The record is a 354-nucleotide sequence from Primorskyibacter sedentarius, which matches "Alphaproteobacteria transfer-messenger RNA" in Rfam. Its family is annotated with RNA catabolic process in the Gene Ontology. A search with the family's covariance model found it, with a score of 316 bits. It is annotated as a non-coding RNA gene. The family is grouped with related families in Rfam's "tRNA clan".
RNA sequence: CCCCUUUGCAUGCCCGCCAAAGCCCCCUAUAUUCACCUUGCUCCUUCGGGAGCUAUGGACAUAAACGCGCUCGUAAUAAGCGGAUCGGACCCGGGGGCGGUACCCGGCGGCUCCACCAAAUAUCCUUCAUUUGGGGAUCAUGGGGCCGAAAUAGGAUCGACGAACGUCUAAAGGGGUUAGCUUUGUCCCGGUGAGUUACCACCGUUAUCGGUACAAAUCGUACAGUUGCAAAUGACAACCGUGCUCCGACAAUGGCUCUGGCUGCGUAAGCAGUUCGAGUUUGUCGAACUUAAGCCCUUGCGCCUAGCAGCGUAAGGCGGGGUUCGCAGGCACCUGGCAACAGAAGCCUGCACU
Numbered sequence: 001c002c003c004c005u006u007u008g009c010a011u012g013c014c015c016g017c018c019a020a021a022g023c024c025c026c027c028u029a030u031a032u033u034c035a036c037c038u039u040g041c042u043c044c045u046u047c048g049g050g051a052g053c054u055a056u057g058g059a060c061a062u063a064a065a066c067g068c069g070c071u072c073g074u075a076a077u078a079a080g081c082g083g084a085u086c087g088g089a090c091c092c093g094g095g096g097g098c099g100g101u102a103c104c105c106g107g108c109g110g111c112u113c114c115a116c117c118a119a120a121u122a123u124c125c126u127u128c129a130u131u132u133g134g135g136g137a138u139c140a141u142g143g144g145g146c147c148g149a150a151a152u153a154g155g156a157u158c159g160a161c162g163a164a165c166g167u168c169u170a171a172a173g174g175g176g177u178u179a180g181c182u183u184u185g186u187c188c189c190g191g192u193g194a195g196u197u198a199c200c201a202c203c204g205u206u207a208u209c210g211g212u213a214c215a216a217a218u219c220g221u222a223c224a225g226u227u228g229c230a231a232a233u234g235a236c237a238a239c240c241g242u243g244c245u246c247c248g249a250c251a252a253u254g255g256c257u258c259u260g261g262c263u264g265c266g267u268a269a270g271c272a273g274u275u276c277g278a279g280u281u282u283g284u285c286g287a288a289c290u291u292a293a294g295c296c297c298u299u300g301c302g303c304c305u306a307g308c309a310g311c312g313u314a315a316g317g318c319g320g321g322g323u324u325c326g327c328a329g330g331c332a333c334c335u336g337g338c339a340a341c342a343g344a345a346g347c348c349u350g351c352a353c354u
Stems, first nucleotide, its partner, number of pairs: 040053005057188005067181002069177004081166002085163003091107005108148007189204004195214002198212003320335004326351006